[Rfam]
RNA: Glycine riboswitch aptamer
Organism: Halalkalibacter suaedae
RNA sequence: AUGAUGAUUACAGGAGAGCACAACGGCAAUGUUGUCACCGAAGGAGCAAAUCCCAAAAAAACCUUGGGGUAUAAACUCUCAGGUAAAAGGAACUGUAAUUGGACG
Numbered sequence: 001a002u003g004a005u006g007a008u009u010a011c012a013g014g015a016g017a018g019c020a021c022a023a024c025g026g027c028a029a030u031g032u033u034g035u036c037a038c039c040g041a042a043g044g045a046g047c048a049a050a051u052c053c054c055a056a057a058a059a060a061a062c063c064u065u066g067g068g069g070u071a072u073a074a075a076c077u078c079u080c081a082g083g084u085a086a087a088a089g090g091a092a093c094u095g096u097a098a099u100u101g102g103a104c105g
Base pairs, nucleotide, nucleotide: 006100007099008098009097010096011095012094013093020035021034022033023032037084038083039082040080041079044078045077046076050072051071